[Rfam]
RNA sequence: CUGGCUCCGGUUCACGGCACGCAUCGGGUGUGCCGACCCGGCGCC
Numbered sequence: 001c002u003g004g005c006u007c008c009g010g011u012u013c014a015c016g017g018c019a020c021g022c023a024u025c026g027g028g029u030g031u032g033c034c035g036a037c038c039c040g041g042c043g044c045c
Stems, first nucleotide, its partner, number of pairs: 003045003007041004015035008
A member of the RNA family "L31-Actinobacteria ribosomal protein leader", 45 nucleotides long. The sequence is in the family's curated seed alignment. The base pairs follow the family's consensus structure, which is taken from published work.